[Rfam]
RNA sequence: UUAAAUACUGGGCAAACCUGCCGAAAGACAGGGGCGCAAAGCUAUAGGGCCUAUCUCUUAACGAACGGCAGCCAGUUGUAUUU
Numbered sequence: 001u002u003a004a005a006u007a008c009u010g011g012g013c014a015a016a017c018c019u020g021c022c023g024a025a026a027g028a029c030a031g032g033g034g035c036g037c038a039a040a041g042c043u044a045u046a047g048g049g050c051c052u053a054u055c056u057c058u059u060a061a062c063g064a065a066c067g068g069c070a071g072c073c074a075g076u077u078g079u080a081u082u083u
Base pairs, nucleotide, nucleotide: 012037013036017032018031019030020029022027040077041076042075043074047073048072049069050068051067056063

A member of the RNA family "c-di-GMP-I riboswitch aptamer" from Papillibacter cinnamivorans, 83 nucleotides long. The organism belongs to Papillibacter cinnamivorans, within Bacteria. Pairs were carried over by alignment from the consensus structure, which is taken from published work.